[Rfam]
RNA sequence: AGUUCCCACAAUUGGAAGUCGCUCUGGAUAAGAGCGUCUGCUAAAUGACUAAAC
Numbered sequence: 001a002g003u004u005c006c007c008a009c010a011a012u013u014g015g016a017a018g019u020c021g022c023u024c025u026g027g028a029u030a031a032g033a034g035c036g037u038c039u040g041c042u043a044a045a046u047g048a049c050u051a052a053a054c
Stems, first nucleotide, its partner, number of pairs: 013043001014041001016039001020036006